Overview:
The record is a 111-nucleotide sequence from Nocardioides piscis, which matches "TPP riboswitch aptamer (THI element)" in Rfam. The family's consensus secondary structure is taken from published work.
RNA sequence: CGUCGUCCCCACGGGAGCCCGCGGCAGCGGGCUGAGAGGGAGCUGGACGCCGCUCCGACCGUCAAACCUGAUCCGGAUAAUGCCGGCGAAGGAAGCGAUCCGAUGCUGUCC
Numbered sequence: 001c002g003u004c005g006u007c008c009c010c011a012c013g014g015g016a017g018c019c020c021g022c023g024g025c026a027g028c029g030g031g032c033u034g035a036g037a038g039g040g041a042g043c044u045g046g047a048c049g050c051c052g053c054u055c056c057g058a059c060c061g062u063c064a065a066a067c068c069u070g071a072u073c074c075g076g077a078u079a080a081u082g083c084c085g086g087c088g089a090a091g092g093a094a095g096c097g098a099u100c101c102g103a104u105g106c107u108g109u110c111c
Stems, first nucleotide, its partner, number of pairs: 008097001010095001011062004017032005039056005067092003073086004